[Rfam]
RNA sequence: GUCAUACUACGGUGCAUCGCAGUGCAAAGUAAACGAUGACCCUCAGGGAACUCCAGGGUAAAAUACAGGUCAAUUUGGAAACCGUUCCUGACCUGGCGCUUUGCGCCGGGUCAGUUUUAUUU
Numbered sequence: 001g002u003c004a005u006a007c008u009a010c011g012g013u014g015c016a017u018c019g020c021a022g023u024g025c026a027a028a029g030u031a032a033a034c035g036a037u038g039a040c041c042c043u044c045a046g047g048g049a050a051c052u053c054c055a056g057g058g059u060a061a062a063a064u065a066c067a068g069g070u071c072a073a074u075u076u077g078g079a080a081a082c083c084g085u086u087c088c089u090g091a092c093c094u095g096g097c098g099c100u101u102u103g104c105g106c107c108g109g110g111u112c113a114g115u116u117u118u119a120u121u122u
Base pairs, nucleotide, nucleotide: 001040002039003038004037005036010035011034014030015029041048042047057071058070059069088114089113090112091111092110093109094108095107096106097105
RNA: Enterobacteria greA leader